[Rfam]
About this RNA: SmY spliceosomal RNA: a 78-nucleotide RNA from Caenorhabditis elegans. The literature on the family includes a 2009 paper in RNA Biol by Jones et al., "A survey of nematode SmY RNAs". The base pairs follow the family's consensus structure, which is taken from published work. By type it is a spliceosomal small nuclear RNA. The source organism's lineage runs through Eukaryota, Opisthokonta, Rhabditidae, Peloderinae and Caenorhabditis.

RNA sequence: AUAUAAUAUAUCACUGUCAGGGCCUUACAAAAGACCCAGUGAACAAUUUUUGCAAACCCUGUCUUCUUGAAGGCGGGG
Number, nucleotide and partner (000 for none) at each position: 001a000002u000003a000004u000005a000006a000007u000008a000009u000010a000011u000012c000013a000014c000015u000016g000017u000018c000019a000020g037021g036022g035023c000024c033025u032026u031027a000028c000029a000030a000031a026032a025033g024034a000035c022036c021037c020038a000039g000040u000041g000042a000043a000044c000045a000046a000047u000048u000049u000050u000051u000052g000053c000054a000055a000056a000057c078058c077059c076060u075061g074062u073063c072064u071065u000066c000067u000068u000069g000070a000071a064072g063073g062074c061075g060076g059077g058078g057